Bacterial small subunit ribosomal RNA: a 355-nucleotide part of an RNA from Proteiniclasticum ruminis. Taxonomically the source falls in Proteiniclasticum (Bacteria, Bacillati, Eubacteriales, Clostridiaceae).
RNA sequence: GGCGUAAAGGAUGCGUAGGUGGAUACUUAAGUGGGAUGUGAAAUCCCCGGGCUCAACCCGGGAACUGCAUUCCAAACUGGGUAUCUAGAGUGCAGGAGAGGAAAGCGGAAUUCCUAGUGUAGCGGUGAAAUGCGUAGAUAUUAGGAGGAACACCAGUGGCGAAGGCGGCUUUCUGGACUGUAACUGACACUGAGGCAUGAAAGCGUGGGUAGCAAACAGGAUUAGAUACCCUGGUAGUCCACGCCGUAAACGAUGGGUACUAGGUGUAGGAGGUAUCGACCCCUUCUGUGCCGUCGUUAACACAAUAAGUACCCCGCCUGGGGAGUACGGUCGCAAGACUAAAACUCAAAGGAAU
Numbered sequence: 001g002g003c004g005u006a007a008a009g010g011a012u013g014c015g016u017a018g019g020u021g022g023a024u025a026c027u028u029a030a031g032u033g034g035g036a037u038g039u040g041a042a043a044u045c046c047c048c049g050g051g052c053u054c055a056a057c058c059c060g061g062g063a064a065c066u067g068c069a070u071u072c073c074a075a076a077c078u079g080g081g082u083a084u085c086u087a088g089a090g091u092g093c094a095g096g097a098g099a100g101g102a103a104a105g106c107g108g109a110a111u112u113c114c115u116a117g118u119g120u121a122g123c124g125g126u127g128a129a130a131u132g133c134g135u136a137g138a139u140a141u142u143a144g145g146a147g148g149a150a151c152a153c154c155a156g157u158g159g160c161g162a163a164g165g166c167g168g169c170u171u172u173c174u175g176g177a178c179u180g181u182a183a184c185u186g187a188c189a190c191u192g193a194g195g196c197a198u199g200a201a202a203g204c205g206u207g208g209g210u211a212g213c214a215a216a217c218a219g220g221a222u223u224a225g226a227u228a229c230c231c232u233g234g235u236a237g238u239c240c241a242c243g244c245c246g247u248a249a250a251c252g253a254u255g256g257g258u259a260c261u262a263g264g265u266g267u268a269g270g271a272g273g274u275a276u277c278g279a280c281c282c283c284u285u286c287u288g289u290g291c292c293g294u295c296g297u298u299a300a301c302a303c304a305a306u307a308a309g310u311a312c313c314c315c316g317c318c319u320g321g322g323g324a325g326u327a328c329g330g331u332c333g334c335a336a337g338a339c340u341a342a343a344a345c346u347c348a349a350a351g352g353a354a355u
Stems, first nucleotide, its partner, number of pairs: 001318003009315001011198004016192001018191003022085007030078002032074009046062006089185003092181004100174007107151001111147008122133003159166002203244006212238002217233004255314006263292011296303002320347003329340004